[Rfam]
RNA sequence: AGGAGUAGUUUAGUAUUCUGUUGUUCAAAAGAUAACGGAGCUUACGGUGGACCACUACUUCUAUCAUCCACGACACACAAACUUAUAAUUUACUAUGUUAAUGUAAAAGUUAUACUCAGAAAAAAAUAAGCAUAAGUGUCCAUCAGGUUUUGAUGAAAGUCGCCUACCUAGUCAUGGGUUGUCCAUGGCACACUGAGACCGCAAGUUGAUGUGUAUUUUUACCAAAGACCUCUAAGGAGUCGAAUCCUGAGUCAGUUCGCAAGAUUGAAGAGAGUUGAGUAAUGAAAGAGUAGUUAAAACCUUUAGAAGUGAUUGGUCUAACCAAUCGGCGAUGAGAGUUACCAUUCAAAAGAUGGUGGAAAUAAAGGGAACCACAUAAUCCUUUUAAAGAUUCUCAAAAACAGGUGUAUUCUCAACCU
Numbered sequence: 001a002g003g004a005g006u007a008g009u010u011u012a013g014u015a016u017u018c019u020g021u022u023g024u025u026c027a028a029a030a031g032a033u034a035a036c037g038g039a040g041c042u043u044a045c046g047g048u049g050g051a052c053c054a055c056u057a058c059u060u061c062u063a064u065c066a067u068c069c070a071c072g073a074c075a076c077a078c079a080a081a082c083u084u085a086u087a088a089u090u091u092a093c094u095a096u097g098u099u100a101a102u103g104u105a106a107a108a109g110u111u112a113u114a115c116u117c118a119g120a121a122a123a124a125a126a127u128a129a130g131c132a133u134a135a136g137u138g139u140c141c142a143u144c145a146g147g148u149u150u151u152g153a154u155g156a157a158a159g160u161c162g163c164c165u166a167c168c169u170a171g172u173c174a175u176g177g178g179u180u181g182u183c184c185a186u187g188g189c190a191c192a193c194u195g196a197g198a199c200c201g202c203a204a205g206u207u208g209a210u211g212u213g214u215a216u217u218u219u220u221a222c223c224a225a226a227g228a229c230c231u232c233u234a235a236g237g238a239g240u241c242g243a244a245u246c247c248u249g250a251g252u253c254a255g256u257u258c259g260c261a262a263g264a265u266u267g268a269a270g271a272g273a274g275u276u277g278a279g280u281a282a283u284g285a286a287a288g289a290g291u292a293g294u295u296a297a298a299a300c301c302u303u304u305a306g307a308a309g310u311g312a313u314u315g316g317u318c319u320a321a322c323c324a325a326u327c328g329g330c331g332a333u334g335a336g337a338g339u340u341a342c343c344a345u346u347c348a349a350a351a352g353a354u355g356g357u358g359g360a361a362a363u364a365a366a367g368g369g370a371a372c373c374a375c376a377u378a379a380u381c382c383u384u385u386u387a388a389a390g391a392u393u394c395u396c397a398a399a400a401a402c403a404g405g406u407g408u409a410u411u412c413u414c415a416a417c418c419u
Stems, first nucleotide, its partner, number of pairs: 001062009010044001012042003017039009046144007130202002145302010160332005171189006190214004197207003217287005230272004235248004252268003256264002311327006334396006340358007359412003364385006404418003
A member of the RNA family "Giant, ornate, lake- and Lactobacillales-derived (GOLLD) RNA" from Candidatus Magnetobacterium bavaricum, 419 nucleotides long.
The organism belongs to Magnetobacterium (SeqCode), within Bacteria.
The family's RNA type in Rfam is non-coding RNA gene.
The literature on the family includes a 2009 paper in Nature by Weinberg et al., "Exceptional structured noncoding RNAs revealed by bacterial metagenome analysis".
The match comes from Rfam's covariance-model search (316 bits).